A member of the RNA family "Small nucleolar RNA SNORD14" from Camellia sinensis, 123 nucleotides long. The family's RNA type in Rfam is C/D-box small nucleolar RNA. On this family, see Samarsky et al., Nucleic Acids Res 1996: "An essential domain in Saccharomyces cerevisiae U14 snoRNA is absent in vertebrates, but conserved in other yeasts". U14 small nucleolar RNA (U14 snoRNA) is required for early cleavages of eukaryotic precursor rRNAs. In yeasts, this molecule possess a stem-loop region (known as the Y-domain) which is essential for function. A similar structure, but with a different consensus sequence, is found in plants, but is absent in vertebrates. The family's consensus secondary structure was predicted with PFOLD. NCBI's taxonomy places the organism under Eukaryota, Streptophytina, Euphyllophyta, Spermatophyta, Camellia sinensis. The match comes from Rfam's covariance-model search (65 bits).
RNA sequence: UUUCGAUGAUGACAAAUCUAAGGCUUGUUUCUCAAAACAUUCGCGGUGGCCGACUUAGAUCUUUCGCCUUCGCCAGGCUUGAGAGAUGGUGCUGCUUCAUUCCUUCCUUGGAUAUCUGAGAUA
Numbered sequence: 001u002u003u004c005g006a007u008g009a010u011g012a013c014a015a016a017u018c019u020a021a022g023g024c025u026u027g028u029u030u031c032u033c034a035a036a037a038c039a040u041u042c043g044c045g046g047u048g049g050c051c052g053a054c055u056u057a058g059a060u061c062u063u064u065c066g067c068c069u070u071c072g073c074c075a076g077g078c079u080u081g082a083g084a085g086a087u088g089g090u091g092c093u094g095c096u097u098c099a100u101u102c103c104u105u106c107c108u109u110g111g112a113u114a115u116c117u118g119a120g121a122u123a
Stems, first nucleotide, its partner, number of pairs: 001123001003121002060086006